[Rfam]
RNA sequence: GUCUCCUUUAAAUUGGUCCAGAGAGGCCGGUAAGGAAUUAACUCAGCAGAAUUUCAUCACUUUCAAAGUGAAUGGAAAAUGCUUAAAGAAUUUAACUCCUUAUCAGUCAAGCUGGUAGGGAGUUUUUUUAA
Numbered sequence: 001g002u003c004u005c006c007u008u009u010a011a012a013u014u015g016g017u018c019c020a021g022a023g024a025g026g027c028c029g030g031u032a033a034g035g036a037a038u039u040a041a042c043u044c045a046g047c048a049g050a051a052u053u054u055c056a057u058c059a060c061u062u063u064c065a066a067a068g069u070g071a072a073u074g075g076a077a078a079a080u081g082c083u084u085a086a087a088g089a090a091u092u093u094a095a096c097u098c099c100u101u102a103u104c105a106g107u108c109a110a111g112c113u114g115g116u117a118g119g120g121a122g123u124u125u126u127u128u129u130a131a
Stems, first nucleotide, its partner, number of pairs: 004036005013030006049080001052077005057071005094124012
RNA: PyrR binding site
Organism: Halanaerobium saccharolyticum